[Rfam]
Nucleotides: 047
Stems, first nucleotide, its partner, number of pairs: 006029005015040002
Number, partner (000 for none) and nucleotide at each position: 001000u002000u003000g004000a005000c006029a007028g008027a009026g010025g011000u012000u013000c014000u015040u016039a017000g018000c019000a020000a021000u022000a023000a024000c025010c026009c027008u028007c029006u030000a031000u032000a033000a034000a035000a036000a037000a038000c039016u040015a041000a042000g043000g044000a045000c046000a047000a
Shown here is a 47-nucleotide RNA from Oceanobacillus sp. J11TS1, a member of the family "PreQ1 (pre queuosine) riboswitch aptamer". Its family is annotated with queuosine biosynthetic process in the Gene Ontology. The organism belongs to Oceanobacillus, within Bacteria.